tRNA: an 84-nucleotide RNA from Marinobacterium lutimaris. It is annotated as a transfer RNA.
[Rfam]
RNA sequence: GCCGGUGUGGUGAAAUUGGUAUACACAGGGGAUUCAAAAUCCCCCGCCUUUACGGGCGUGUCGGUUCGAGUCCGACCACCGGCA
Numbered sequence: 001g002c003c004g005g006u007g008u009g010g011u012g013a014a015a016u017u018g019g020u021a022u023a024c025a026c027a028g029g030g031g032a033u034u035c036a037a038a039a040u041c042c043c044c045c046g047c048c049u050u051u052a053c054g055g056g057c058g059u060g061u062c063g064g065u066u067c068g069a070g071u072c073c074g075a076c077c078a079c080c081g082g083c084a
Base pairs, nucleotide, nucleotide: 001083002082003081004080005079006078007077010026011025012024028044029043030042031041032040060076061075062074063073064072